Rfam assigns this 60-nucleotide sequence from Streptomycetaceae bacterium MP113-05 to the family "L17-Actino-Proteobacteria ribosomal protein leader". Pairs were carried over by alignment from the consensus structure, which is taken from published work. It is annotated as a cis-regulatory leader. On this family, see Eckert and Weinberg, BMC Microbiol 2020: "Discovery of 20 novel ribosomal leader candidates in bacteria and archaea". It is one of the family's seed sequences.

RNA sequence: CCGUGCGGACGACCUGUCCGUACGGACCCCUGACACCGGUACCUGACACGGCCGGUGCAG
Numbered sequence: 001c002c003g004u005g006c007g008g009a010c011g012a013c014c015u016g017u018c019c020g021u022a023c024g025g026a027c028c029c030c031u032g033a034c035a036c037c038g039g040u041a042c043c044u045g046a047c048a049c050g051g052c053c054g055g056u057g058c059a060g
Stems, first nucleotide, its partner, number of pairs: 001025009030060003034057007